Background
The family of this 80-nucleotide sequence from Trichophyton benhamiae is "tRNA". Taxonomically the source falls in Trichophyton benhamiae (Eukaryota, Dikarya, Pezizomycotina, Arthrodermataceae).
RNA sequence: GCCCGUAUAGCUCAGUGGUAGAGCGCAUCACUCGUACUCAUGCUAUGAUGAGGUCCUCGGUUCGAAUCCGAGUGGGGGCA
Numbered sequence: 001g002c003c004c005g006u007a008u009a010g011c012u013c014a015g016u017g018g019u020a021g022a023g024c025g026c027a028u029c030a031c032u033c034g035u036a037c038u039c040a041u042g043c044u045a046u047g048a049u050g051a052g053g054u055c056c057u058c059g060g061u062u063c064g065a066a067u068c069c070g071a072g073u074g075g076g077g078g079c080a
Stems, first nucleotide, its partner, number of pairs: 001079004006074002010024004026050005056072005
The family is grouped with related families in Rfam's "tRNA clan".
A search with the family's covariance model found it, with a score of 58 bits.
The base pairs follow the family's consensus structure, which is taken from published work.